[Rfam]
RNA sequence: GUUGCAUGAUGAGGAAAGUUAGAUUUUCUGAUCCACAGGAUGAGAAAUUCCUCCUACUCAUUCUGA
Numbered sequence: 001g002u003u004g005c006a007u008g009a010u011g012a013g014g015a016a017a018g019u020u021a022g023a024u025u026u027u028c029u030g031a032u033c034c035a036c037a038g039g040a041u042g043a044g045a046a047a048u049u050c051c052u053c054c055u056a057c058u059c060a061u062u063c064u065g066a
Base pairs, nucleotide, nucleotide: 006061007060008059009058027044028039
This 66-nucleotide sequence from Panicum miliaceum belongs to the Rfam family "Small nucleolar RNA Z105". Taxonomically the source falls in Panicum sect. Panicum (Eukaryota, Viridiplantae, Poales, Panicodae). By type it is a C/D-box small nucleolar RNA. On this family, see Chen et al., Nucleic Acids Res 2003: "The high diversity of snoRNAs in plants: identification and comparative study of 120 snoRNA genes from Oryza sativa".